[Rfam]
RNA sequence: CUUCACCGCACCCAGCAGAAGUGGCCGCUCCCGAUCCUGCCCGUAGGUCGCCAGCACAGCUUGAGCCUC
Dot-bracket structure: ..............((.......))..(((.(....(((.(.(....).).)))....)...)))....
RNA: ASpks TB sRNA
Organism: Amycolatopsis sp. CA-230715